Annotation: This 171-nucleotide RNA sequence from Lachnospiraceae bacterium AM48-27BH belongs to the Rfam family "Clostridiales-1 RNA". The family's RNA type in Rfam is small RNA. The organism belongs to Lachnospiraceae, within Bacteria. It scores 133 bits against the family's covariance model.
[Rfam]
RNA sequence: AGAUACCAGGGUCAAAAGGUCAGAAGUUCGACGCAAGCUUGCUUGCAGGAGAAUUUUUGACCUUGGGACCCGCACAAACAUGAGUAAGUAGCCAUUUUUCAAGGAAAAAUGAGCGGAUUACGAAUGUUUUGAAGAUUGCGGAAGCACAUAGUGCGGAGCAAUCUGGUAUCA
Numbered sequence: 001a002g003a004u005a006c007c008a009g010g011g012u013c014a015a016a017a018g019g020u021c022a023g024a025a026g027u028u029c030g031a032c033g034c035a036a037g038c039u040u041g042c043u044u045g046c047a048g049g050a051g052a053a054u055u056u057u058u059g060a061c062c063u064u065g066g067g068a069c070c071c072g073c074a075c076a077a078a079c080a081u082g083a084g085u086a087a088g089u090a091g092c093c094a095u096u097u098u099u100c101a102a103g104g105a106a107a108a109a110u111g112a113g114c115g116g117a118u119u120a121c122g123a124a125u126g127u128u129u130u131g132a133a134g135a136u137u138g139c140g141g142a143a144g145c146a147c148a149u150a151g152u153g154c155g156g157a158g159c160a161a162u163c164u165g166g167u168a169u170c171a
Stems, first nucleotide, its partner, number of pairs: 002170006010070004017063013032048001033046005076129006084121004091114002093111008133164007144154004